[Rfam]
RNA: Mason-Pfizer monkey virus packaging signal
RNA sequence: UGGCGCCCAAUGGUGUGGCUUUGGAUACAGGGGAAUUCGCCAGGGAAGAGGCGUCUAAGUGUUCGGUCAAAGAAAAAAAAUAAAAAGUGAAAGCCAUUUCGACAAAGAUCGCCAUGGGAGCCUGCUGGGCCGUUCUUAAAGGUACAGUAGCACCUAAGUAUGGGACAAGAAUUAAGUAAGCAUAAAGUUUUUGUUAAGCAAUUAAAAGAAGCUUUAAAGACACGGGGAGUAAAGGUUAAGAGUAAUGAUCUUUUUAAGUUUUUUGACCUUAUUAAGAACACCUGUCCGU
Numbered sequence: 001u002g003g004c005g006c007c008c009a010a011u012g013g014u015g016u017g018g019c020u021u022u023g024g025a026u027a028c029a030g031g032g033g034a035a036u037u038c039g040c041c042a043g044g045g046a047a048g049a050g051g052c053g054u055c056u057a058a059g060u061g062u063u064c065g066g067u068c069a070a071a072g073a074a075a076a077a078a079a080a081u082a083a084a085a086a087g088u089g090a091a092a093g094c095c096a097u098u099u100c101g102a103c104a105a106a107g108a109u110c111g112c113c114a115u116g117g118g119a120g121c122c123u124g125c126u127g128g129g130c131c132g133u134u135c136u137u138a139a140a141g142g143u144a145c146a147g148u149a150g151c152a153c154c155u156a157a158g159u160a161u162g163g164g165a166c167a168a169g170a171a172u173u174a175a176g177u178a179a180g181c182a183u184a185a186a187g188u189u190u191u192u193g194u195u196a197a198g199c200a201a202u203u204a205a206a207a208g209a210a211g212c213u214u215u216a217a218a219g220a221c222a223c224g225g226g227g228a229g230u231a232a233a234g235g236u237u238a239a240g241a242g243u244a245a246u247g248a249u250c251u252u253u254u255u256a257a258g259u260u261u262u263u264u265g266a267c268c269u270u271a272u273u274a275a276g277a278a279c280a281c282c283u284g285u286c287c288g289u
Stems, first nucleotide, its partner, number of pairs: 006033003013028003038053004093143003098139002108134001110132001113129001115127003148168001150166001153164004173216003176212002223265008233251006274289001276287001278285002